[Rfam]
RNA sequence: GGCGAUAAAUGGUCUGUGAAAUAAGCCUUUCGGACCCGGGGGCGGUACCCGGCGCCUCCACCAUGAACGGUGACACCAUCACCGCUGAUGCUGGGGGCGAAAUAGGCUCGACGAGGGUCUAAAGACAGCGCUUUCGCCCGGCAUGGUACCGCCGUUAUCGGACCGAACAAUAGUUGCCAACGACAACUAUGCUGAGGCUCGCCUCGCUGCGUAA
Numbered sequence: 001g002g003c004g005a006u007a008a009a010u011g012g013u014c015u016g017u018g019a020a021a022u023a024a025g026c027c028u029u030u031c032g033g034a035c036c037c038g039g040g041g042g043c044g045g046u047a048c049c050c051g052g053c054g055c056c057u058c059c060a061c062c063a064u065g066a067a068c069g070g071u072g073a074c075a076c077c078a079u080c081a082c083c084g085c086u087g088a089u090g091c092u093g094g095g096g097g098c099g100a101a102a103u104a105g106g107c108u109c110g111a112c113g114a115g116g117g118u119c120u121a122a123a124g125a126c127a128g129c130g131c132u133u134u135c136g137c138c139c140g141g142c143a144u145g146g147u148a149c150c151g152c153c154g155u156u157a158u159c160g161g162a163c164c165g166a167a168c169a170a171u172a173g174u175u176g177c178c179a180a181c182g183a184c185a186a187c188u189a190u191g192c193u194g195a196g197g198c199u200c201g202c203c204u205c206g207c208u209g210c211g212u213a214a
Base pairs, nucleotide, nucleotide: 001138002137003136004135005134014128015127016126017125026117027116028115030114031113032112036052037051038050039049040048053099054098055097056096057095058094059093139154140153141152142151